[Rfam]
RNA sequence: AAGAAGAAUGUGGGAGAGAUUCGAUCAAGGCCUAAGAAACCAUAGGUAAUGAUUGGACGCCGAAGGAAGAAGCUAGAGAAAUUGCCCUUUUCUAGUGAAAAUCUCAGGCAAAAGGACCGUAUUUGGACA
Numbered sequence: 001a002a003g004a005a006g007a008a009u010g011u012g013g014g015a016g017a018g019a020u021u022c023g024a025u026c027a028a029g030g031c032c033u034a035a036g037a038a039a040c041c042a043u044a045g046g047u048a049a050u051g052a053u054u055g056g057a058c059g060c061c062g063a064a065g066g067a068a069g070a071a072g073c074u075a076g077a078g079a080a081a082u083u084g085c086c087c088u089u090u091u092c093u094a095g096u097g098a099a100a101a102u103c104u105c106a107g108g109c110a111a112a113a114g115g116a117c118c119g120u121a122u123u124u125g126g127a128c129a
Stems, first nucleotide, its partner, number of pairs: 006124008020057008059109003062105002066103002072096009